[Rfam]
RNA sequence: ACAUGUUUGAGAUCAACCCCCUGAUUUUAAAACAACCUUUUCCCCCUGAGUAAAGUGAAGAAUUGCUGUGUGUAGUCUUUGCCCAUCCCAUGUGAUGGGCUUUUUUUUUG
Numbered sequence: 001a002c003a004u005g006u007u008u009g010a011g012a013u014c015a016a017c018c019c020c021c022u023g024a025u026u027u028u029a030a031a032a033c034a035a036c037c038u039u040u041u042c043c044c045c046c047u048g049a050g051u052a053a054a055g056u057g058a059a060g061a062a063u064u065g066c067u068g069u070g071u072g073u074a075g076u077c078u079u080u081g082c083c084c085a086u087c088c089c090a091u092g093u094g095a096u097g098g099g100c101u102u103u104u105u106u107u108u109u110g
Stems, first nucleotide, its partner, number of pairs: 002023002005020001033048002064072003081100007

The family of this 110-nucleotide sequence from Paramixta manurensis is "RprA RNA". A search with the family's covariance model found it, with a score of 78 bits. Taxonomically the source falls in Paramixta (Bacteria, Pseudomonadati, Gammaproteobacteria, Erwiniaceae). On this family, see Majdalani et al., Mol Microbiol 2001: "Regulation of RpoS by a novel small RNA: the characterization of RprA". About the family: Translational regulation of the stationary phase sigma factor RpoS is mediated by the formation of a double-stranded RNA stem-loop structure in the upstream region of the rpoS messenger RNA, occluding the translation initiation site. Gene Ontology term of the family: mRNA binding. By type it is a small RNA.